RNA sequence: UAAGUUACAAAAGCGCCAGGGCAUAAAGUAGGAGCGGUCUACUUAUGCAGACGAGGACGAGGUUUAUCGAAUUAAUCGGCGGAUGCCUCGGGGUGAGCCACCACCCAGAAAGAUGGGACAAAACAGAUAAGUAAUUAUCUGUACAAAGCCUAUCAGGUGGAGAA
Numbered sequence: 001u002a003a004g005u006u007a008c009a010a011a012a013g014c015g016c017c018a019g020g021g022c023a024u025a026a027a028g029u030a031g032g033a034g035c036g037g038u039c040u041a042c043u044u045a046u047g048c049a050g051a052c053g054a055g056g057a058c059g060a061g062g063u064u065u066a067u068c069g070a071a072u073u074a075a076u077c078g079g080c081g082g083a084u085g086c087c088u089c090g091g092g093g094u095g096a097g098c099c100a101c102c103a104c105c106c107a108g109a110a111a112g113a114u115g116g117g118a119c120a121a122a123a124c125a126g127a128u129a130a131g132u133a134a135u136u137a138u139c140u141g142u143a144c145a146a147a148g149c150c151u152a153u154c155a156g157g158u159g160g161a162g163a164a
Stems, first nucleotide, its partner, number of pairs: 021048006058090005067079004091106005112154006124141007
RNA: glmS glucosamine-6-phosphate activated ribozyme aptamer
Organism: Anaeromonas frigoriresistens